Record summary: Shown here is a 131-nucleotide sequence from Jaculus jaculus, a member of the family "Small nucleolar RNA SNORA61". A search with the family's covariance model found it, with a score of 103 bits. From the family's description: ACA61 is a member of the H/ACA class of snoRNA that guide the sites of modification of uridines to pseudouridines. Taxonomically the source falls in Jaculus (Eukaryota, Chordata, Theria, Rodentia). Rfam links the family to the GO terms RNA processing and nucleolus. The family's consensus secondary structure was predicted with PFOLD.
[Rfam]
RNA sequence: ACCCUCCUAUUCCCUUUCCCAUCGGAUCCUUGACACUUAUCUCUGUGGUCAUAAAGGAGGGACACUGACACUGAAGGUGGCCUCACAGCAUGUAGUCUGGUAUACAGCAUGUGGGCUACAUUCAAACAGGG
Number, nucleotide and partner (000 for none) at each position: 001a000002c000003c060004c059005u058006c057007c056008u000009a000010u000011u000012c000013c000014c000015u000016u000017u000018c000019c048020c047021a046022u045023c000024g000025g041026a040027u039028c000029c000030u000031u000032g000033a000034c000035a000036c000037u000038u000039a027040u026041c025042u000043c000044u000045g022046u021047g020048g019049u000050c000051a000052u000053a000054a000055a000056g007057g006058a005059g004060g003061g000062a000063c000064a000065c000066u000067g000068a000069c000070a000071c000072u000073g000074a000075a000076g000077g119078u118079g117080g116081c115082c114083u113084c000085a000086c000087a000088g000089c000090a000091u109092g108093u107094a000095g000096u000097c000098u000099g000100g000101u000102a000103u000104a000105c000106a000107g093108c092109a091110u000111g000112u000113g083114g082115g081116c080117u079118a078119c077120a000121u000122u000123c000124a000125a000126a000127c000128a000129g000130g000131g000